[Rfam]
RNA sequence: GCUGUCCUCGAUCUGUCAGCACCACAGGCACGGCUGCUCUGCUGUGCCUGUAGCAUCAGGACACAGAGCAAGUGGCUAUUUCUACGCUCAGUGUUCAGAAGCCAAUGAGCACUAGGAAUGGUUAUAGCCUGACAUUU
Numbered sequence: 001g002c003u004g005u006c007c008u009c010g011a012u013c014u015g016u017c018a019g020c021a022c023c024a025c026a027g028g029c030a031c032g033g034c035u036g037c038u039c040u041g042c043u044g045u046g047c048c049u050g051u052a053g054c055a056u057c058a059g060g061a062c063a064c065a066g067a068g069c070a071a072g073u074g075g076c077u078a079u080u081u082c083u084a085c086g087c088u089c090a091g092u093g094u095u096c097a098g099a100a101g102c103c104a105a106u107g108a109g110c111a112c113u114a115g116g117a118a119u120g121g122u123u124a125u126a127g128c129c130u131g132a133c134a135u136u137u
Stems, first nucleotide, its partner, number of pairs: 003063006010056001024051004074129003082121003087116002092111006
RNA: Small nucleolar RNA SNORA43